[Rfam]
Rfam assigns this 76-nucleotide RNA from Ferrimonas marina to the family "c-di-GMP-I-GGC riboswitch aptamer". The family has 40 seed sequences and 1,298 matches in Rfam 15.1. NCBI's taxonomy places the organism under Bacteria, Pseudomonadati, Gammaproteobacteria, Ferrimonadaceae, Ferrimonas.

RNA sequence: ACACCAAUCGCCAAACCCAUUGUGAGGUGGGGACGGAAAGCCACGGGUCUUGUCAAAGACAGCCGGGCUGCAUCAG
Number, nucleotide and partner (000 for none) at each position: 001a000002c000003a073004c000005c000006a000007a000008u000009c000010g000011c036012c035013a000014a000015a000016c031017c030018c029019a028020u027021u026022g000023u000024g000025a000026g021027g020028u019029g018030g017031g016032g000033a000034c062035g012036g011037a000038a000039a069040g068041c067042c066043a000044c065045g064046g063047g060048u059049c058050u000051u000052g000053u000054c000055a000056a000057a000058g049059a048060c047061a000062g034063c046064c045065g044066g042067g041068c040069u039070g000071c000072a000073u003074c000075a000076g000